A member of the RNA family "UnaL2 LINE 3' element" from Danio rerio, 55 nucleotides long. Pairs were carried over by alignment from the consensus structure, which is taken from published work. The organism belongs to Danio, within Eukaryota.
RNA sequence: UGUUCUCUUCAAUUGUAAGUCGCUUUAGAUAAAAGCGUCUGCUAAAUGACUAAAU
Numbered sequence: 001u002g003u004u005c006u007c008u009u010c011a012a013u014u015g016u017a018a019g020u021c022g023c024u025u026u027a028g029a030u031a032a033a034a035g036c037g038u039c040u041g042c043u044a045a046a047u048g049a050c051u052a053a054a055u
Stems, first nucleotide, its partner, number of pairs: 014044001015042003021037006